[Rfam]
RNA sequence: ACUGUGGAGUGUACAAGAACCUGUUAGUAGCAAGUUGCCAGCAACUGCCAAAGCAUACACAAUGAAGCAGUAA
Numbered sequence: 001a002c003u004g005u006g007g008a009g010u011g012u013a014c015a016a017g018a019a020c021c022u023g024u025u026a027g028u029a030g031c032a033a034g035u036u037g038c039c040a041g042c043a044a045c046u047g048c049c050a051a052a053g054c055a056u057a058c059a060c061a062a063u064g065a066a067g068c069a070g071u072a073a
Stems, first nucleotide, its partner, number of pairs: 001071005009060005022055003030048003034045004
Source information: Rfam assigns this 73-nucleotide sequence to the family "RAGATH-18 RNA". Rfam describes the family as follows. Actinobacteria, Firmicutes, Fusobacteria, Thermotogae (1 example).